Overview: The record is a 101-nucleotide sequence from Gracilibacillus dipsosauri, which matches "Guanidine-I riboswitch aptamer" in Rfam. Its family is annotated with regulation of gene expression in the Gene Ontology.
[Rfam]
RNA sequence: AAUAAGGUCUUCUAGGGUUCCGCAAUAAAAAUUGGUCAGGUCCGAGAGAAGACACACAGCUGCUGCUAGCUGUGACACGGAGGGAUAAAAGCCUGGGAGAU
Numbered sequence: 001a002a003u004a005a006g007g008u009c010u011u012c013u014a015g016g017g018u019u020c021c022g023c024a025a026u027a028a029a030a031a032u033u034g035g036u037c038a039g040g041u042c043c044g045a046g047a048g049a050a051g052a053c054a055c056a057c058a059g060c061u062g063c064u065g066c067u068a069g070c071u072g073u074g075a076c077a078c079g080g081a082g083g084g085a086u087a088a089a090a091g092c093c094u095g096g097g098a099g100a101u
Base pairs, nucleotide, nucleotide: 007053008052009051010050011049012048015043016042020040021039022037023034024033025032026031055074056073057072058071059070060069061068076096078099082094083093084092